[Rfam]
RNA: Selenocysteine insertion sequence 1
RNA sequence: GUGUUUUAAUGAUGGUCUGACUUUAAAUUCCUUAGUGAAUGAGCAGACUUGAUGCUUAACAU
Numbered sequence: 001g002u003g004u005u006u007u008a009a010u011g012a013u014g015g016u017c018u019g020a021c022u023u024u025a026a027a028u029u030c031c032u033u034a035g036u037g038a039a040u041g042a043g044c045a046g047a048c049u050u051g052a053u054g055c056u057u058a059a060c061a062u
Stems, first nucleotide, its partner, number of pairs: 001062005014049006021043003029039001031037001